[Rfam]
RNA sequence: GGAUGUGAGGGCAAUCUGGCUGUGACAUCUGUCACCCCAUUGACUGACAGGGUUGAUUCAGCUGAUCUGGCUGUCUACGUGUGUGUUCCCUUCCUCCCUCACUGCUCUAUGUGUGUCCCUCCUGAAGCUGUGCGCUUGGUCGAACAGGAUGACCUUCUUCGAUAGAGGCAUACUGUUCAUUGGUCCAAGGGUAUACCAUAGCUGUGCUCCCCUGCUAGAACCUCCAAACAGGCUCAAGGUCCAUUUGUAGGAGAACAGAGAGUAGUCAAGCUUCCAAGACUGCAGAAACAUCCAAGUGAGGCACUGCAUGGGUAGGACGAGAGGAAAUAGCCUCAAGCU
Numbered sequence: 001g002g003a004u005g006u007g008a009g010g011g012c013a014a015u016c017u018g019g020c021u022g023u024g025a026c027a028u029c030u031g032u033c034a035c036c037c038c039a040u041u042g043a044c045u046g047a048c049a050g051g052g053u054u055g056a057u058u059c060a061g062c063u064g065a066u067c068u069g070g071c072u073g074u075c076u077a078c079g080u081g082u083g084u085g086u087u088c089c090c091u092u093c094c095u096c097c098c099u100c101a102c103u104g105c106u107c108u109a110u111g112u113g114u115g116u117c118c119c120u121c122c123u124g125a126a127g128c129u130g131u132g133c134g135c136u137u138g139g140u141c142g143a144a145c146a147g148g149a150u151g152a153c154c155u156u157c158u159u160c161g162a163u164a165g166a167g168g169c170a171u172a173c174u175g176u177u178c179a180u181u182g183g184u185c186c187a188a189g190g191g192u193a194u195a196c197c198a199u200a201g202c203u204g205u206g207c208u209c210c211c212c213u214g215c216u217a218g219a220a221c222c223u224c225c226a227a228a229c230a231g232g233c234u235c236a237a238g239g240u241c242c243a244u245u246u247g248u249a250g251g252a253g254a255a256c257a258g259a260g261a262g263u264a265g266u267c268a269a270g271c272u273u274c275c276a277a278g279a280c281u282g283c284a285g286a287a288a289c290a291u292c293c294a295a296g297u298g299a300g301g302c303a304c305u306g307c308a309u310g311g312g313u314a315g316g317a318c319g320a321g322a323g324g325a326a327a328u329a330g331c332c333u334c335a336a337g338c339u
Stems, first nucleotide, its partner, number of pairs: 001108003005102007014092001018090002024087005030081003036073001037070003042067002045064001046062001118168004122139004127135002140162003147158003201271003207265002210262001212260002222253004228248005

Record summary:
Shown here is a 339-nucleotide RNA sequence from Anhinga anhinga, a member of the family "7SK RNA". Pairs were carried over by alignment from the consensus structure, which is taken from published work. Lineage of the source: Eukaryota > Opisthokonta > Amniota > Suliformes > Anhinga. A reference for the family is Wassarman and Steitz (1991), "Structural analyses of the 7SK ribonucleoprotein (RNP), the most abundant human small RNP of unknown function", Mol Cell Biol. Rfam 15.1 lists 49,373 matches to the family in 668 species. Rfam's curators write: 7SK was discovered as an abundant small nuclear RNA in the mid-70s but a possible function has only recently been suggested. Two independent studies have found that 7SK RNA binds the CDK9/cyclin T complex (known as elongation factor P-TEFb). P-TEFb activates transcription by phosphorylating the C-terminal domain of RNA polymerase II. This process is negatively regulated by the 7SK RNP. The secondary structure of 7SK RNA shown here was proposed by Wasserman and Steitz on the basis of chemical modification and enzymatic cleavage experiments. This family contains a number of annotated pseudogenes and 7SK derived repeats. The threshold is artificially high to minimise the pseudogene count.